Annotation
The family of this 96-nucleotide RNA from Aspergillus terreus is "A. fumigatus snoRNA Afu_263". Gene Ontology terms of the family: nucleolus and RNA processing.
RNA sequence: UUCGAUGAUGAACACCAUAAUCCAAAGCAUAGUUCACCUGAGUGUCUUCGGACCGCUGAACGACAACCUUAUACCAUCUUUCACCUUUAUCUGAUG
Numbered sequence: 001u002u003c004g005a006u007g008a009u010g011a012a013c014a015c016c017a018u019a020a021u022c023c024a025a026a027g028c029a030u031a032g033u034u035c036a037c038c039u040g041a042g043u044g045u046c047u048u049c050g051g052a053c054c055g056c057u058g059a060a061c062g063a064c065a066a067c068c069u070u071a072u073a074c075c076a077u078c079u080u081u082c083a084c085c086u087u088u089a090u091c092u093g094a095u096g
Stems, first nucleotide, its partner, number of pairs: 006020001008018003032061005042054001044053003
Dot-bracket structure: .....(.(((.....))).)...........(((((.....(.(((....))))..)))))...................................
Record summary
For this family Rfam cites "Small ncRNA transcriptome analysis from Aspergillus fumigatus suggests a novel mechanism for regulation of protein synthesis" (Jochl et al., Nucleic Acids Res, 2008). The source organism's lineage runs through Eukaryota, Opisthokonta, Fungi, Dikarya and Aspergillus terreus.